[Rfam]
RNA sequence: AGGCCUGGAGAGAGAAGCAGGGUCUGAUCCGUAGCCUCUAUGGCAGCUGUUGAUCAGCUCUUACCUCUCUCUUUUGCUCUG
Numbered sequence: 001a002g003g004c005c006u007g008g009a010g011a012g013a014g015a016a017g018c019a020g021g022g023u024c025u026g027a028u029c030c031g032u033a034g035c036c037u038c039u040a041u042g043g044c045a046g047c048u049g050u051u052g053a054u055c056a057g058c059u060c061u062u063a064c065c066u067c068u069c070u071c072u073u074u075u076g077c078u079c080u081g
Stems, first nucleotide, its partner, number of pairs: 008073008017064001019062002022059001024057006032049004

This 81-nucleotide RNA from Eptesicus fuscus belongs to the Rfam family "mir-574 microRNA precursor family".
Gene Ontology terms of the family: RISC complex and miRNA-mediated post-transcriptional gene silencing.
On this family, see Lui et al., Cancer Res 2007: "Patterns of known and novel small RNAs in human cervical cancer".
The family is grouped with related families in Rfam's "mir-574 microRNA precursor clan".
Rfam's curators put it in the seed alignment.
The family has 6 seed sequences and 4,084 matches in Rfam 15.1.
Pairs were carried over by alignment from the consensus structure, which was predicted with RNAalifold.